Wolbachia sRNA 46: a 161-nucleotide RNA sequence from Laodelphax striatellus. Rfam 15.1 lists 237 matches to the family in 34 species. The family's RNA type in Rfam is small RNA. On this family, see Mayoral et al., Proc Natl Acad Sci U S A 2014: "Wolbachia small noncoding RNAs and their role in cross-kingdom communications". It scores 88 bits against the family's covariance model.
Nucleotides: 161
Base pairs, nucleotide, nucleotide: 012155013154014153015152020143021142022141023140024139025138026137027136028135029134030133031132032131033130034129035128036127037126038125039124040123041122042121043120
Number, partner (000 for none) and nucleotide at each position: 001000u002000u003000a004000g005000g006000u007000u008000c009000a010000u011000a012155a013154a014153g015152g016000a017000a018000g019000g020143u021142g022141u023140c024139a025138u026137c027136c028135c029134a030133g031132u032131a033130c034129u035128g036127a037126g038125a039124u040123c041122c042121a043120g044000g045000a046000a047000a048000a049000u050000u051000g052000a053000u054000u055000g056000u057000a058000a059000a060000u061000g062000a063000g064000c065000a066000a067000a068000c069000a070000u071000u072000u073000u074000u075000a076000a077000u078000a079000a080000a081000a082000u083000g084000a085000c086000c087000a088000a089000c090000a091000a092000g093000a094000a095000a096000a097000a098000u099000a100000g101000u102000u103000a104000a105000u106000u107000c108000a109000u110000u111000u112000a113000g114000a115000u116000a117000a118000a119000a120043c121042u122041g123040g124039a125038u126037u127036u128035c129034a130033g131032u132031a133030c134029u135028g136027g137026g138025a139024u140023g141022a142021c143020a144000c145000c146000a147000c148000a149000u150000a151000g152015u153014c154013u155012u156000c157000u158000u159000g160000a161000a